[Rfam]
RNA: Guanidine-II riboswitch aptamer (mini-ykkC)
RNA sequence: GAACGGGGACGACCCCGUUCGCAUCACUUCAUCCGGGGACGGCCCCA
Numbered sequence: 001g002a003a004c005g006g007g008g009a010c011g012a013c014c015c016c017g018u019u020c021g022c023a024u025c026a027c028u029u030c031a032u033c034c035g036g037g038g039a040c041g042g043c044c045c046c047a
Base pairs, nucleotide, nucleotide: 001020002019003018004017005016006015007014008013035046036045037044038043